Source information
The record is a 351-nucleotide part of an RNA from uncultured SAR11 cluster bacterium HF0010_09O16, which matches "Bacterial small subunit ribosomal RNA" in Rfam. The sequence is in the family's curated seed alignment. Rfam links the family to the GO terms structural constituent of ribosome and ribosome. The family is grouped with related families in Rfam's "SSU clan". The family's consensus secondary structure is taken from published work. Taxonomically the source falls in Candidatus Pelagibacterales (Bacteria, Pseudomonadati, Pseudomonadota, Alphaproteobacteria).
RNA sequence: GGCUUAAAGAGUUCGUAGGUGGUUGAAAAAGUUGGUGGUGAAAUCCCAGAGCUUAACUCUGGAACUGCCAUCAAAACUUUUCAGCUAGAGUUUGAUAGAGGAAAGCAGAAUUUCUAGUGUAGAGGUGAAAUUCGUAGAUAUUAGAAAGAAUACCAAUUGCGAAGGCAGCUUUCUGGAUCAUUACUGACGCUGAGGAACGAAAGCAUGGGUAGCGAAGAGGAUUAGAUACCCUCGUAGUCCAUGCCGUAAAAGAUGUGUGUUAGACGUUGGAAAUUUAUUUUCAGUGUCGCAGCGAAAGCGAUAAACACACCGCCUGGGGAGUACGACCGCAAGGUUAAAACUCAAAUGAAU
Dot-bracket structure: (((.....(.((((.(.(((.(((((((.(((((((((((.....((((((.....))))))...)))))))))..)))))))))...(((.((((...((((((((...((((((((...(((......)))......))))))))...).......((....)).)))))))..))))..)))...))))..))))....((((((...((...((((.........))))...))))))))..........((((((..(((((((((((....)))))))))))...((....)).....)))))))))).(((......((((....))))....)))........
Numbered sequence: 001g002g003c004u005u006a007a008a009g010a011g012u013u014c015g016u017a018g019g020u021g022g023u024u025g026a027a028a029a030a031g032u033u034g035g036u037g038g039u040g041a042a043a044u045c046c047c048a049g050a051g052c053u054u055a056a057c058u059c060u061g062g063a064a065c066u067g068c069c070a071u072c073a074a075a076a077c078u079u080u081u082c083a084g085c086u087a088g089a090g091u092u093u094g095a096u097a098g099a100g101g102a103a104a105g106c107a108g109a110a111u112u113u114c115u116a117g118u119g120u121a122g123a124g125g126u127g128a129a130a131u132u133c134g135u136a137g138a139u140a141u142u143a144g145a146a147a148g149a150a151u152a153c154c155a156a157u158u159g160c161g162a163a164g165g166c167a168g169c170u171u172u173c174u175g176g177a178u179c180a181u182u183a184c185u186g187a188c189g190c191u192g193a194g195g196a197a198c199g200a201a202a203g204c205a206u207g208g209g210u211a212g213c214g215a216a217g218a219g220g221a222u223u224a225g226a227u228a229c230c231c232u233c234g235u236a237g238u239c240c241a242u243g244c245c246g247u248a249a250a251a252g253a254u255g256u257g258u259g260u261u262a263g264a265c266g267u268u269g270g271a272a273a274u275u276u277a278u279u280u281u282c283a284g285u286g287u288c289g290c291a292g293c294g295a296a297a298g299c300g301a302u303a304a305a306c307a308c309a310c311c312g313c314c315u316g317g318g319g320a321g322u323a324c325g326a327c328c329g330c331a332a333g334g335u336u337a338a339a340a341c342u343c344a345a346a347u348g349a350a351u
Stems, first nucleotide, its partner, number of pairs: 001314003009311001011198004016192001018191003022085007030078002032074009046062006089185003093180004100174007107151001111147008122133003159166002203244006212238002217233004255310006263288011292299002316343003325336004